[Rfam]
RNA sequence: UACUACAAACCCUAUCUCCACCUCCACGUGGUGACCGCUGGGAGCUCUUUCUUAACAAAAAGCUGCAGACGGAGAAGG
Numbered sequence: 001u002a003c004u005a006c007a008a009a010c011c012c013u014a015u016c017u018c019c020a021c022c023u024c025c026a027c028g029u030g031g032u033g034a035c036c037g038c039u040g041g042g043a044g045c046u047c048u049u050u051c052u053u054a055a056c057a058a059a060a061a062g063c064u065g066c067a068g069a070c071g072g073a074g075a076a077g078g
Base pairs, nucleotide, nucleotide: 011078012077013076015074017072018071020032021031022030043064044063045062046061048059049058050057
Dot-bracket structure: ..........(((.(.((.(((.......)))..........((((.(((......))).))))......)).).)))